The record is a 335-nucleotide RNA sequence from Dermabacter sp. HFH0086, which matches "Bacterial RNase P class A" in Rfam. The base pairs follow the family's consensus structure, which is taken from published work. The organism belongs to Dermabacter, within Bacteria. The family's RNA type in Rfam is ribozyme.
RNA sequence: CCAGUCAGCUGGACAGUCGCGAGGUAUUGCCUCGAGGAAAGUCCGGGCUCCCCCUGGCACGGUGGUGGGUAACACCCACCCGGAGUGAUCCGCGGGCCAGUGCCACAGAAAGCAAACCGCCUGCUAUGCAGGUAAGGGUGAAAGGGUGGUGUAAGAGACCACCGCGGCGCCAGCGAUGGUGCCGGCACGGUAAACCCCACCGGGAGCAAGGUCAUGCAGGAGGCGCCAAGGCUGCCAGGCCGAGUCUCCGGGUAGGCCGCUCGAGGUCGUCGGUAACGGCGAUCCUAGAUAGAUGACUGUUGAAACAGAACCCGGCUUAUAGGCUGGCUGGUCCG
Numbered sequence: 001c002c003a004g005u006c007a008g009c010u011g012g013a014c015a016g017u018c019g020c021g022a023g024g025u026a027u028u029g030c031c032u033c034g035a036g037g038a039a040a041g042u043c044c045g046g047g048c049u050c051c052c053c054c055u056g057g058c059a060c061g062g063u064g065g066u067g068g069g070u071a072a073c074a075c076c077c078a079c080c081c082g083g084a085g086u087g088a089u090c091c092g093c094g095g096g097c098c099a100g101u102g103c104c105a106c107a108g109a110a111a112g113c114a115a116a117c118c119g120c121c122u123g124c125u126a127u128g129c130a131g132g133u134a135a136g137g138g139u140g141a142a143a144g145g146g147u148g149g150u151g152u153a154a155g156a157g158a159c160c161a162c163c164g165c166g167g168c169g170c171c172a173g174c175g176a177u178g179g180u181g182c183c184g185g186c187a188c189g190g191u192a193a194a195c196c197c198c199a200c201c202g203g204g205a206g207c208a209a210g211g212u213c214a215u216g217c218a219g220g221a222g223g224c225g226c227c228a229a230g231g232c233u234g235c236c237a238g239g240c241c242g243a244g245u246c247u248c249c250g251g252g253u254a255g256g257c258c259g260c261u262c263g264a265g266g267u268c269g270u271c272g273g274u275a276a277c278g279g280c281g282a283u284c285c286u287a288g289a290u291a292g293a294u295g296a297c298u299g300u301u302g303a304a305a306c307a308g309a310a311c312c313c314g315g316c317u318u319a320u321a322g323g324c325u326g327g328c329u330g331g332u333c334c335g
Stems, first nucleotide, its partner, number of pairs: 001331010011320001012301007020034006039318003043315005048206004055237004060202005065079005080094001081092004095197002100195002102191003117137002119133006145163006164186001165184008210258004219249006230241004265284008